[Rfam]
RNA sequence: GAUUGAGGUAGAGGUUGCGUAAAUCAAGAGUAUCAUAUCGUAUGUGUCAGGCACAGAAGAGGGUAUGAGAAAGGGAGGAGCGCCGAAGGAGAGAUAUGCCUGCACAUAUAUUUCCUGGGCAUAUGGCGAACAGCCAUAUGACUGUCACCAUAAGGUGGAGAGCUACUGGUAUC
Numbered sequence: 001g002a003u004u005g006a007g008g009u010a011g012a013g014g015u016u017g018c019g020u021a022a023a024u025c026a027a028g029a030g031u032a033u034c035a036u037a038u039c040g041u042a043u044g045u046g047u048c049a050g051g052c053a054c055a056g057a058a059g060a061g062g063g064u065a066u067g068a069g070a071a072a073g074g075g076a077g078g079a080g081c082g083c084c085g086a087a088g089g090a091g092a093g094a095u096a097u098g099c100c101u102g103c104a105c106a107u108a109u110a111u112u113u114c115c116u117g118g119g120c121a122u123a124u125g126g127c128g129a130a131c132a133g134c135c136a137u138a139u140g141a142c143u144g145u146c147a148c149c150a151u152a153a154g155g156u157g158g159a160g161a162g163c164u165a166c167u168g169g170u171a172u173c
Stems, first nucleotide, its partner, number of pairs: 007167005017083004024076002033068007087116006094109005117143002120140008145158005
Rfam assigns this 173-nucleotide RNA sequence from Lachnotalea sp. AF33-28 to the family "Lysine riboswitch aptamer".
Rfam describes the family as follows. Riboswitches are metabolite binding domains within certain messenger RNAs that serve as precision sensors for their corresponding targets.
It scores 115 bits against the family's covariance model.
The family's consensus secondary structure is taken from published work.